[Rfam]
RNA sequence: CGCCCCGGUGAUGCGCGACUCCCGGUAAAGAACGGCGGGAAAGGAACUACCCAACCCACCCCCUCCGUCCCCCAACUGGCCUGCUCACACGAACGGGUGACGGAGUGUCCGGAAGUCGGACAGGUGCGGUACGGUCGGUCGCGACAACCGCAUACGCAACUCGGCCCCCGGCAGGACUGCAAUCCUGACGAGGGCCUACCGAUCAGGAAGAACCAACCUUCCCA
Numbered sequence: 001c002g003c004c005c006c007g008g009u010g011a012u013g014c015g016c017g018a019c020u021c022c023c024g025g026u027a028a029a030g031a032a033c034g035g036c037g038g039g040a041a042a043g044g045a046a047c048u049a050c051c052c053a054a055c056c057c058a059c060c061c062c063c064u065c066c067g068u069c070c071c072c073c074a075a076c077u078g079g080c081c082u083g084c085u086c087a088c089a090c091g092a093a094c095g096g097g098u099g100a101c102g103g104a105g106u107g108u109c110c111g112g113a114a115g116u117c118g119g120a121c122a123g124g125u126g127c128g129g130u131a132c133g134g135u136c137g138g139u140c141g142c143g144a145c146a147a148c149c150g151c152a153u154a155c156g157c158a159a160c161u162c163g164g165c166c167c168c169c170g171g172c173a174g175g176a177c178u179g180c181a182a183u184c185c186u187g188a189c190g191a192g193g194g195c196c197u198a199c200c201g202a203u204c205a206g207g208a209a210g211a212a213c214c215a216a217c218c219u220u221c222c223c224a
Stems, first nucleotide, its partner, number of pairs: 007204003017071001085100004090095001109138004163196005169190002173186004206222005
RNA: Streptomyces sRNA 4677